RNA sequence: CGGCCUCAAACUAAUGAGUAAGGAAACUAACGCUUCCACUGAUAAUGGAGGCAUCGUAGAUUACGAUCCAAUUUUUGUAAGGGUAUGGAACGGCCUCAGUUUGGUGCUUAACCUCUUUGUUAAGUUGAACUCUGGCUGGUCCCCUU
Numbered sequence: 001c002g003g004c005c006u007c008a009a010a011c012u013a014a015u016g017a018g019u020a021a022g023g024a025a026a027c028u029a030a031c032g033c034u035u036c037c038a039c040u041g042a043u044a045a046u047g048g049a050g051g052c053a054u055c056g057u058a059g060a061u062u063a064c065g066a067u068c069c070a071a072u073u074u075u076u077g078u079a080a081g082g083g084u085a086u087g088g089a090a091c092g093g094c095c096u097c098a099g100u101u102u103g104g105u106g107c108u109u110a111a112c113c114u115c116u117u118u119g120u121u122a123a124g125u126u127g128a129a130c131u132c133u134g135g136c137u138g139g140u141c142c143c144c145u146u
Stems, first nucleotide, its partner, number of pairs: 004023003008019001032052007053067005081146003087142003091138003095134001099130005107124005
RNA: U12 minor spliceosomal RNA